[Rfam]
A member of the RNA family "tRNA" from Bifidobacterium longum, 74 nucleotides long. A search with the family's covariance model found it, with a score of 72 bits. It is annotated as a transfer RNA. The family's consensus secondary structure is taken from published work. Rfam links the family to the GO term triplet codon-amino acid adaptor activity.

RNA sequence: GCCCCUGUAGCUCAGUUGGUUAGAGCAGCUGACUCUUAAUCAGCGUGUCCAGGGUUCGAAUCCCUGCGGGGGCA
Numbered sequence: 001g002c003c004c005c006u007g008u009a010g011c012u013c014a015g016u017u018g019g020u021u022a023g024a025g026c027a028g029c030u031g032a033c034u035c036u037u038a039a040u041c042a043g044c045g046u047g048u049c050c051a052g053g054g055u056u057c058g059a060a061u062c063c064c065u066g067c068g069g070g071g072g073c074a
Stems, first nucleotide, its partner, number of pairs: 001073007010026004028044005050066005